[Rfam]
RNA: Guanidine-II riboswitch aptamer (mini-ykkC)
RNA sequence: GCGCCGGGACGACCCGGUGCGCCGAACCAGUCGGGCAGGACGACCUGC
Numbered sequence: 001g002c003g004c005c006g007g008g009a010c011g012a013c014c015c016g017g018u019g020c021g022c023c024g025a026a027c028c029a030g031u032c033g034g035g036c037a038g039g040a041c042g043a044c045c046u047g048c
Stems, first nucleotide, its partner, number of pairs: 001020008035048005
Dot-bracket structure: ((((((((....))))))))..............(((((....)))))